[Rfam]
RNA sequence: UAUAACGGUGAUGAGUCUACAGACCUGUAAUGAUUUGCGGAUAUGAUCGCAAUUAUUAUUGAACAUCUAAGGGACUGAGUUAUA
Numbered sequence: 001u002a003u004a005a006c007g008g009u010g011a012u013g014a015g016u017c018u019a020c021a022g023a024c025c026u027g028u029a030a031u032g033a034u035u036u037g038c039g040g041a042u043a044u045g046a047u048c049g050c051a052a053u054u055a056u057u058a059u060u061g062a063a064c065a066u067c068u069a070a071g072g073g074a075c076u077g078a079g080u081u082a083u084a
Stems, first nucleotide, its partner, number of pairs: 002083005
The family of this 84-nucleotide RNA sequence from Lupinus angustifolius is "Small nucleolar RNA SNORD25". The family has 12 seed sequences and 985 matches in Rfam 15.1. By type it is a C/D-box small nucleolar RNA. The literature on the family includes a 1996 paper in Nature by Tycowski et al., "A mammalian gene with introns instead of exons generating stable RNA products".